Shown here is a 179-nucleotide sequence from Paenibacillus sp. HGF7, a member of the family "c-di-AMP riboswitch aptamer (ydaO/yuaA leader)".

RNA sequence: GCGUUUUUAUCGCUGAGUUUCCGUGUGAAGCGGAAAACGGGGGAACCAACGAGGACUUGCAGGCCUGACGGCCAGUCCUCAUGGGGUGAAUCCAGAAGCGGCAUCCGUGCCGUCAUGGUAGGGCGACUCUCACGCCCGAAUCCGACAGCUAACCUCGUAAGCGUACCGAGAGAGGCGAC
Numbered sequence: 001g002c003g004u005u006u007u008u009a010u011c012g013c014u015g016a017g018u019u020u021c022c023g024u025g026u027g028a029a030g031c032g033g034a035a036a037a038c039g040g041g042g043g044a045a046c047c048a049a050c051g052a053g054g055a056c057u058u059g060c061a062g063g064c065c066u067g068a069c070g071g072c073c074a075g076u077c078c079u080c081a082u083g084g085g086g087u088g089a090a091u092c093c094a095g096a097a098g099c100g101g102c103a104u105c106c107g108u109g110c111c112g113u114c115a116u117g118g119u120a121g122g123g124c125g126a127c128u129c130u131c132a133c134g135c136c137c138g139a140a141u142c143c144g145a146c147a148g149c150u151a152a153c154c155u156c157g158u159a160a161g162c163g164u165a166c167c168g169a170g171a172g173a174g175g176c177g178a179c
Stems, first nucleotide, its partner, number of pairs: 011163004018036007037158006047083002084143003092118003121137004